[Rfam]
RNA sequence: ACUGCCAGCACCUUGGCGAUGUAGGGGAUCAGCGGCAGGUUCAGGAUCAAGAGGAUCAGGUUUCCGAGGUACAUCGAGAUGAUCACCGCCCAGAAGAUCUGCGGCUCAUCCACCAUCAGCCGCGGCCC
Numbered sequence: 001a002c003u004g005c006c007a008g009c010a011c012c013u014u015g016g017c018g019a020u021g022u023a024g025g026g027g028a029u030c031a032g033c034g035g036c037a038g039g040u041u042c043a044g045g046a047u048c049a050a051g052a053g054g055a056u057c058a059g060g061u062u063u064c065c066g067a068g069g070u071a072c073a074u075c076g077a078g079a080u081g082a083u084c085a086c087c088g089c090c091c092a093g094a095a096g097a098u099c100u101g102c103g104g105c106u107c108a109u110c111c112a113c114c115a116u117c118a119g120c121c122g123c124g125g126c127c128c
Stems, first nucleotide, its partner, number of pairs: 003018006026128002029125002033122004038114003043109001045107002048104001052100003056097002061093002068086001073083003
Description:
The family of this 128-nucleotide sequence from Rhodobacterales bacterium Y4I is "Ruegeria cis8 sRNA". Pairs were carried over by alignment from the consensus structure, which was predicted with RNAfold. The match comes from Rfam's covariance-model search (107 bits). The organism belongs to Rhodobacterales, within Bacteria. The family has 2 seed sequences and 138 matches in Rfam 15.1.